The record is a 568-nucleotide sequence from Ganoderma sinense, which matches "Nuclear RNase P" in Rfam.
The match comes from Rfam's covariance-model search (39 bits).
The organism belongs to Ganoderma sinense, within Eukaryota.
Rfam's curators write: Ribonuclease P (RNase P) is a ubiquitous endoribonuclease, found in archaea, bacteria and eukarya as well as chloroplasts and mitochondria. Its best characterised activity is the generation of mature 5'-ends of tRNAs by cleaving the 5'-leader elements of precursor-tRNAs. Cellular RNase Ps are ribonucleoproteins. RNA from bacterial RNase Ps retains its catalytic activity in the absence of the protein subunit, i.e. it is a ribozyme.
RNA sequence: ACCGCAAAGGCCGCGAAGCUCACCCCGAACAGGAUGCUCAUCCACACUCGUGAGCGGGCCAAGGUCUGAGUAUUCCAGUCCCCCUCGAACGGCCCUAGCUGGGUCGGUUCUGUCUGUGACGACCCCACCGCGCACCAGAAAUCCGCCGCUGACCUCGUGCGUCGCGGCCCCCCACGACGUGUCGACUAUGCUAUUACACAACGUAUGGCUGGUCACCCAUAGCCCUAAGAUCUCGCUUGUACUCCGAGUGUAUUCGUACAUCAGCAGUCUGCAGUGAUGGAGGGCUCGCGGUCAGCGACUUGAAAGCGCUGUGGGGACUGGGCGUACUGUCUUCCUCUGCUCUGGGAUUAUCGCGUCUAUCGCGCCUUGCUGCGCGUGGCGCCGCUUUUGCGGCUGCUUCACUUGUAUAUGCUGUUGCCAAGGUCUUGUACCUCAGGGCUUGUGUAUACAUCAGACGAACGAGGUCUCAGGGUUUGCAAACGUCCUUGAGUGCACUUCGCGGCUUGCUCAUGGCAUUAAUAUUUUGGUGUCAGGCAAAACUCGAUUCAGACUACUCUUGCGUUGUGGU
Numbered sequence: 001a002c003c004g005c006a007a008a009g010g011c012c013g014c015g016a017a018g019c020u021c022a023c024c025c026c027g028a029a030c031a032g033g034a035u036g037c038u039c040a041u042c043c044a045c046a047c048u049c050g051u052g053a054g055c056g057g058g059c060c061a062a063g064g065u066c067u068g069a070g071u072a073u074u075c076c077a078g079u080c081c082c083c084c085u086c087g088a089a090c091g092g093c094c095c096u097a098g099c100u101g102g103g104u105c106g107g108u109u110c111u112g113u114c115u116g117u118g119a120c121g122a123c124c125c126c127a128c129c130g131c132g133c134a135c136c137a138g139a140a141a142u143c144c145g146c147c148g149c150u151g152a153c154c155u156c157g158u159g160c161g162u163c164g165c166g167g168c169c170c171c172c173c174a175c176g177a178c179g180u181g182u183c184g185a186c187u188a189u190g191c192u193a194u195u196a197c198a199c200a201a202c203g204u205a206u207g208g209c210u211g212g213u214c215a216c217c218c219a220u221a222g223c224c225c226u227a228a229g230a231u232c233u234c235g236c237u238u239g240u241a242c243u244c245c246g247a248g249u250g251u252a253u254u255c256g257u258a259c260a261u262c263a264g265c266a267g268u269c270u271g272c273a274g275u276g277a278u279g280g281a282g283g284g285c286u287c288g289c290g291g292u293c294a295g296c297g298a299c300u301u302g303a304a305a306g307c308g309c310u311g312u313g314g315g316g317a318c319u320g321g322g323c324g325u326a327c328u329g330u331c332u333u334c335c336u337c338u339g340c341u342c343u344g345g346g347a348u349u350a351u352c353g354c355g356u357c358u359a360u361c362g363c364g365c366c367u368u369g370c371u372g373c374g375c376g377u378g379g380c381g382c383c384g385c386u387u388u389u390g391c392g393g394c395u396g397c398u399u400c401a402c403u404u405g406u407a408u409a410u411g412c413u414g415u416u417g418c419c420a421a422g423g424u425c426u427u428g429u430a431c432c433u434c435a436g437g438g439c440u441u442g443u444g445u446a447u448a449c450a451u452c453a454g455a456c457g458a459a460c461g462a463g464g465u466c467u468c469a470g471g472g473u474u475u476g477c478a479a480a481c482g483u484c485c486u487u488g489a490g491u492g493c494a495c496u497u498c499g500c501g502g503c504u505u506g507c508u509c510a511u512g513g514c515a516u517u518a519a520u521a522u523u524u525u526g527g528u529g530u531c532a533g534g535c536a537a538a539a540c541u542c543g544a545u546u547c548a549g550a551c552u553a554c555u556c557u558u559g560c561g562u563u564g565u566g567g568u
Base pairs, nucleotide, nucleotide: 001568002567003566004565005559006558007557010503011502012501013500014499015498016497018055019054020053021052022051032043033042034041035040066549067548068547069546070545080316091105092104093103094102095101107120108119126313127312128311130309131308132307147297148296149295150294151293152292153291154290504537505536506535507534508533